[Rfam]
RNA: MIR398 microRNA precursor family
Organism: Coptis chinensis
RNA sequence: GUACAACCACUAGGAGCGGCACUGAGAACACAAGUGAUGGUGGUGAUAGUGCCGCAAAGGAAAAUAUCAAUUUUCAUAUGUGUUCUCAGGUCACCCCUUUGGGGCACUC
Numbered sequence: 001g002u003a004c005a006a007c008c009a010c011u012a013g014g015a016g017c018g019g020c021a022c023u024g025a026g027a028a029c030a031c032a033a034g035u036g037a038u039g040g041u042g043g044u045g046a047u048a049g050u051g052c053c054g055c056a057a058a059g060g061a062a063a064a065u066a067u068c069a070a071u072u073u074u075c076a077u078a079u080g081u082g083u084u085c086u087c088a089g090g091u092c093a094c095c096c097c098u099u100u101g102g103g104g105c106a107c108u109c
Base pairs, nucleotide, nucleotide: 007103008102012098013097014096016094018092019091024087025086026085027084028083029082030081031080032079